The family of this 224-nucleotide RNA sequence is "Streptomyces sRNA 4677". The family's RNA type in Rfam is small RNA. About the family: Located in the intergenic region between anti-sigma factor SCO4677 gene and a putative regulatory protein gene SCO4676. scr4677 expression requires the SCO4677 activity and scr4677 sRNA itself seem to affect the levels of the SCO4676-associated transcripts. The family has 12 seed sequences and 563 matches in Rfam 15.1. The pairing is the family consensus, mapped onto this sequence.
RNA sequence: GGGCCCGGCGGGCCACUGACCUCCCCAAAGAACCGGGGGAAAGAACUACCCGCCCACCCACCCUCCCUGGCCGUGAAGCCCCCGUCACCCGUCCGGGUGACCAGCUUGCAGGCGGGGGAUACGGACGGUUACGUUCGCCGCGACAACCGCAAGCAGAUACGGCCCCCGGCCGGGACUGGCAUCCCGAACGAGGGCCUGACCGAUCAGGAAGCGAACCCUUCCCG
Numbered sequence: 001g002g003g004c005c006c007g008g009c010g011g012g013c014c015a016c017u018g019a020c021c022u023c024c025c026c027a028a029a030g031a032a033c034c035g036g037g038g039g040a041a042a043g044a045a046c047u048a049c050c051c052g053c054c055c056a057c058c059c060a061c062c063c064u065c066c067c068u069g070g071c072c073g074u075g076a077a078g079c080c081c082c083c084g085u086c087a088c089c090c091g092u093c094c095g096g097g098u099g100a101c102c103a104g105c106u107u108g109c110a111g112g113c114g115g116g117g118g119a120u121a122c123g124g125a126c127g128g129u130u131a132c133g134u135u136c137g138c139c140g141c142g143a144c145a146a147c148c149g150c151a152a153g154c155a156g157a158u159a160c161g162g163c164c165c166c167c168g169g170c171c172g173g174g175a176c177u178g179g180c181a182u183c184c185c186g187a188a189c190g191a192g193g194g195c196c197u198g199a200c201c202g203a204u205c206a207g208g209a210a211g212c213g214a215a216c217c218c219u220u221c222c223c224g
Stems, first nucleotide, its partner, number of pairs: 007204001009202002012071004085100006111139005161196005167190002172185004207222005